[Rfam]
RNA sequence: AAUAAGAAAAUGACAGAUCAGAUUUUUUUUCUCCUUGUUUUUAGCUUUUUUCUCCUAGAAAAAUUUAAAUCCAACUAAAAAUGCUAAAAAUCAGGAGGAAAAAUUUUAUUUAUCAUUCUUCUAUU
Numbered sequence: 001a002a003u004a005a006g007a008a009a010a011u012g013a014c015a016g017a018u019c020a021g022a023u024u025u026u027u028u029u030u031c032u033c034c035u036u037g038u039u040u041u042u043a044g045c046u047u048u049u050u051u052c053u054c055c056u057a058g059a060a061a062a063a064u065u066u067a068a069a070u071c072c073a074a075c076u077a078a079a080a081a082u083g084c085u086a087a088a089a090a091u092c093a094g095g096a097g098g099a100a101a102a103a104u105u106u107u108a109u110u111u112a113u114c115a116u117u118c119u120u121c122u123a124u125u
Stems, first nucleotide, its partner, number of pairs: 001125004006120002009117005015111004020106008031097005037091005043085002047081004
The family of this 125-nucleotide sequence from Gossypium australe is "MIR7504 microRNA precursor family".
Lineage of the source: Eukaryota > Euphyllophyta > Spermatophyta > malvids > Gossypium.
Gene Ontology terms of the family: miRNA-mediated post-transcriptional gene silencing and RISC complex.